[Rfam]
RNA sequence: UGGCCUGAAAUGAUGUUCUGAGUUCAUGUCUCUUCUCUGAGGUGUCUUGUGGAGACAGCCAGAUACAUUUCUGAUCAGGCUU
Numbered sequence: 001u002g003g004c005c006u007g008a009a010a011u012g013a014u015g016u017u018c019u020g021a022g023u024u025c026a027u028g029u030c031u032c033u034u035c036u037c038u039g040a041g042g043u044g045u046c047u048u049g050u051g052g053a054g055a056c057a058g059c060c061a062g063a064u065a066c067a068u069u070u071c072u073g074a075u076c077a078g079g080c081u082u
Stems, first nucleotide, its partner, number of pairs: 002081004
The family of this 82-nucleotide RNA sequence from Leucopsar rothschildi is "Small nucleolar RNA SNORD111".
NCBI's taxonomy places the organism under Eukaryota, Amniota, Saurischia, Theropoda, Leucopsar.
For this family Rfam cites "Purified box C/D snoRNPs are able to reproduce site-specific 2'-O-methylation of target RNA in vitro" (Galardi et al., Mol Cell Biol, 2002).
Its family is annotated with RNA processing and nucleolus in the Gene Ontology.